[Rfam]
The record is a 60-nucleotide RNA from Tieghemostelium lacteum, which matches "Class I RNA from Dictyostelium" in Rfam.
A reference for the family is Aspegren et al. (2004), "Novel non-coding RNAs in Dictyostelium discoideum and their expression during development", Nucleic Acids Res.
Pairs were carried over by alignment from the consensus structure, which is taken from published work.
From the family's description: Dictyostelium Class I RNA was first reported for Aspegren et al. 2004 in Dictyostelium discoideum. Sucgang et al. 2011 identify putative homologs of Class I RNA in D. discoideum and D. purpureum. Avesson et al. 2011 report that Class I RNA present a down regulation during the development of social amoeba Dictyostelium discoideum, they also found that deletion of one of the Class I RNAs, DdR-21, results in aberrant development. Kjellin et al. 2020 report an extended number of expressed Class I RNA genes in class Dictyostelia, in their analysis they remark that Class I RNA appear to be unique to dictyostelid social amoebas, and they hypothesise that Class I RNAs were involved in evolution of multicellularity in Dictyostelia.
The family's RNA type in Rfam is non-coding RNA gene.

RNA sequence: GAACUCCUUACAUCAAUCUUAAACUUUUUUCUCCAAAAAAAAAUCAAAUCUUGAGUUCUG
Numbered sequence: 001g002a003a004c005u006c007c008u009u010a011c012a013u014c015a016a017u018c019u020u021a022a023a024c025u026u027u028u029u030u031c032u033c034c035a036a037a038a039a040a041a042a043a044u045c046a047a048a049u050c051u052u053g054a055g056u057u058c059u060g
Stems, first nucleotide, its partner, number of pairs: 001058006